[Rfam]
RNA sequence: CUUCACCGAGCCCAGCCACAGCGGCCGAUCCCGCUCCUGCCCGUAGGUGGCCAGCAGUGCCUGCGCCUC
Numbered sequence: 001c002u003u004c005a006c007c008g009a010g011c012c013c014a015g016c017c018a019c020a021g022c023g024g025c026c027g028a029u030c031c032c033g034c035u036c037c038u039g040c041c042c043g044u045a046g047g048u049g050g051c052c053a054g055c056a057g058u059g060c061c062u063g064c065g066c067c068u069c
Base pairs, nucleotide, nucleotide: 015025016024017023031065032059033058037054038053039052041050042049043048
RNA: ASpks TB sRNA
Organism: Phytohabitans suffuscus